[Rfam]
RNA sequence: AUGAAUUGGUGGUGGCACUUCCCGAACCAGCGGGCGGUGUUGGCGUGUUUAUAAAUAACUAAACAGUCGAAGUCGCAAAGCCCGCUCCGUUUGAGCGGGCUUUUUUGU
Number, nucleotide and partner (000 for none) at each position: 001a000002u000003g000004a000005a000006u000007u000008g000009g046010u045011g044012g000013u000014g000015g040016c039017a038018c037019u036020u000021c034022c033023c032024g031025a000026a000027c000028c000029a000030g000031c024032g023033g022034g021035c000036g019037g018038u017039g016040u015041u000042g000043g000044c011045g010046u009047g000048u000049u000050u000051a000052u000053a000054a000055a000056u000057a000058a000059c000060u000061a000062a000063a000064c000065a000066g000067u000068c000069g000070a000071a000072g000073u000074c000075g000076c000077a000078a000079a101080g100081c099082c098083c097084g096085c095086u093087c000088c000089g000090u000091u000092u000093g086094a000095g085096c084097g083098g082099g081100c080101u079102u000103u000104u000105u000106u000107g000108u000